[Rfam]
RNA sequence: GGAACUUGACGUGAACGUUCGUAUAGUACGAGAGGAACUACGAAUGGGUGCCACUGGUGUACCGGUUGUCCGAGAGGGCAGUUGCCGGGCAGCUACGCACCGCAGGGUAAGAGCUGAAAGCAUCUAAGCUCGAAACCUACACGGAAAAGAAGUUCCACUGAGGUCACUCGUAGAAGACGAGUUCGAUAGACUCGGGGUGUACGUGUCGAGGCAACGAGACAUUAAGCCCGCGAGCACUAACAGACCAAG
Dot-bracket structure: (((((((..((((..((((((((...............))))))))(((((...(((....((((((((((....)))))...)))))....))).)))))..(((....(((((...........)))))....))).))))......))))))).....(((((((((.......)))))....(((.(((((((.....(((((..(....)..)))))....))).))))..)))...))))...
Numbered sequence: 001g002g003a004a005c006u007u008g009a010c011g012u013g014a015a016c017g018u019u020c021g022u023a024u025a026g027u028a029c030g031a032g033a034g035g036a037a038c039u040a041c042g043a044a045u046g047g048g049u050g051c052c053a054c055u056g057g058u059g060u061a062c063c064g065g066u067u068g069u070c071c072g073a074g075a076g077g078g079c080a081g082u083u084g085c086c087g088g089g090c091a092g093c094u095a096c097g098c099a100c101c102g103c104a105g106g107g108u109a110a111g112a113g114c115u116g117a118a119a120g121c122a123u124c125u126a127a128g129c130u131c132g133a134a135a136c137c138u139a140c141a142c143g144g145a146a147a148a149g150a151a152g153u154u155c156c157a158c159u160g161a162g163g164u165c166a167c168u169c170g171u172a173g174a175a176g177a178c179g180a181g182u183u184c185g186a187u188a189g190a191c192u193c194g195g196g197g198u199g200u201a202c203g204u205g206u207c208g209a210g211g212c213a214a215c216g217a218g219a220c221a222u223u224a225a226g227c228c229c230g231c232g233a234g235c236a237c238u239a240a241c242a243g244a245c246c247a248a249g
Stems, first nucleotide, its partner, number of pairs: 001156007010143004016046008047101005055095003062088005067080005104138003111131005162246004166182005187239003191234004195229003203222005210215001
The record is a 249-nucleotide part of an RNA from Haloferax mediterranei, which matches "Archaeal large subunit ribosomal RNA" in Rfam. The source organism's lineage runs through Archaea, Methanobacteriati, Halobacteria, Haloferacaceae and Haloferax.